[Rfam]
RNA: Small nucleolar RNA SNORA41
Organism: Peromyscus maniculatus
RNA sequence: GUCCACAGCUACUGGUCUACAGCUGUUCCUAUGGUUGCAGCUGUAGCAUUCCUCUGUGGGAAAGGAACUGUGCACCAUUAAUGCCUCUUUCUUAGCCAAACAGAAAGAGGAAUGUGCGUGACACACACAA
Numbered sequence: 001g002u003c004c005a006c007a008g009c010u011a012c013u014g015g016u017c018u019a020c021a022g023c024u025g026u027u028c029c030u031a032u033g034g035u036u037g038c039a040g041c042u043g044u045a046g047c048a049u050u051c052c053u054c055u056g057u058g059g060g061a062a063a064g065g066a067a068c069u070g071u072g073c074a075c076c077a078u079u080a081a082u083g084c085c086u087c088u089u090u091c092u093u094a095g096c097c098a099a100a101c102a103g104a105a106a107g108a109g110g111a112a113u114g115u116g117c118g119u120g121a122c123a124c125a126c127a128c129a130a
Stems, first nucleotide, its partner, number of pairs: 003059004017046009073118001075116001084110009
Dot-bracket structure: ..((((..........(((((((((............))))))))).........)))).............(.(........(((((((((.........))))))))).....).)............